[Rfam]
This 114-nucleotide RNA sequence from Nothobranchius furzeri belongs to the Rfam family "Potassium channel RNA editing signal". Pairs were carried over by alignment from the consensus structure, which is taken from published work. It is annotated as a cis-regulatory element. Gene Ontology term of the family: adenosine to inosine editing.
RNA sequence: GUGGGCUACGGGGACAUGUAUCCCUCCACCAUUGGAGGAAAAUUUGUGGGUUCUCUGUGUGCUAUCGCCGGAGUGCUGACCAUAGCUUUGCCGGUACCUGUGAUUGUCUCAAAU
Numbered sequence: 001g002u003g004g005g006c007u008a009c010g011g012g013g014a015c016a017u018g019u020a021u022c023c024c025u026c027c028a029c030c031a032u033u034g035g036a037g038g039a040a041a042a043u044u045u046g047u048g049g050g051u052u053c054u055c056u057g058u059g060u061g062c063u064a065u066c067g068c069c070g071g072a073g074u075g076c077u078g079a080c081c082a083u084a085g086c087u088u089u090g091c092c093g094g095u096a097c098c099u100g101u102g103a104u105u106g107u108c109u110c111a112a113a114u
Stems, first nucleotide, its partner, number of pairs: 001114002005110001008107004014101003018097004037077002040074001049063003